The record is a 99-nucleotide sequence from Ornithinibacillus hominis, which matches "Purine riboswitch aptamer" in Rfam.
Lineage of the source: Bacteria > Bacilli > Caryophanales > Bacillaceae > Ornithinibacillus.

[Rfam]
RNA sequence: CACUUAUAAAUAAAUAUUACCUGUAUAACCUCAGAAUAUGGCAUGAGGGUCUCUACCAGGAACCUUAAAAUCCUGAUUACAGAAAAUGAAUCAUUCAUU
Numbered sequence: 001c002a003c004u005u006a007u008a009a010a011u012a013a014a015u016a017u018u019a020c021c022u023g024u025a026u027a028a029c030c031u032c033a034g035a036a037u038a039u040g041g042c043a044u045g046a047g048g049g050u051c052u053c054u055a056c057c058a059g060g061a062a063c064c065u066u067a068a069a070a071u072c073c074u075g076a077u078u079a080c081a082g083a084a085a086a087u088g089a090a091u092c093a094u095u096c097a098u099u
Stems, first nucleotide, its partner, number of pairs: 018085001021082005029048005034042001057075005